Source information: Shown here is a 102-nucleotide sequence from Brachybacterium endophyticum, a member of the family "mraW RNA". It scores 56 bits against the family's covariance model.
RNA sequence: CCGGAUCCGUACAGCGAGACCUCUCGUCGCUCCCGCCCCGACGCAACUUCCCCGGUGGCGGGUCGGGAGCGACGAGGAAUCCCGCCGGACGGCACCGCGGAC
Dot-bracket structure: .........(.(.(((.((..((((((((((((((.((((.(((..........))).)))).))))))))))))))..)).))).).).............